[Rfam]
RNA sequence: AGCCUUGUUUUAUAAUAGUUUUUGUAGAAAAGUGAAAAGUGGUGGCUAGUCCCAAUAGAAAUGGGGUGACGCCUAUGUUGAUUUGUGGCUUGAUCCCUAGAAGGGAGUAGGCAUGUCUGUUUAUCAAGCAUUGUCGCUAAUGAUUGCAUUUGCAACGUUAGUCUUGCUUAUUGCAGAUUACAA
Numbered sequence: 001a002g003c004c005u006u007g008u009u010u011u012a013u014a015a016u017a018g019u020u021u022u023u024g025u026a027g028a029a030a031a032g033u034g035a036a037a038a039g040u041g042g043u044g045g046c047u048a049g050u051c052c053c054a055a056u057a058g059a060a061a062u063g064g065g066g067u068g069a070c071g072c073c074u075a076u077g078u079u080g081a082u083u084u085g086u087g088g089c090u091u092g093a094u095c096c097c098u099a100g101a102a103g104g105g106a107g108u109a110g111g112c113a114u115g116u117c118u119g120u121u122u123a124u125c126a127a128g129c130a131u132u133g134u135c136g137c138u139a140a141u142g143a144u145u146g147c148a149u150u151u152g153c154a155a156c157g158u159u160a161g162u163c164u165u166g167c168u169u170a171u172u173g174c175a176g177a178u179u180a181c182a183a
Base pairs, nucleotide, nucleotide: 042156043155045153046152063097064096065095066094067093069091071089072088115135117133119131120130122128161178162177163176164175166174167173

This 183-nucleotide RNA sequence from Enterococcus ratti belongs to the Rfam family "Listeria sRNA rli28". On this family, see Michels et al., Neuroendocrinology 1991: "Muscarinic cholinergic control of vasopressin secretion from the acute hypothalamoneurohypophysial explant". It is annotated as a small RNA. The family's consensus secondary structure was predicted with RNAalifold.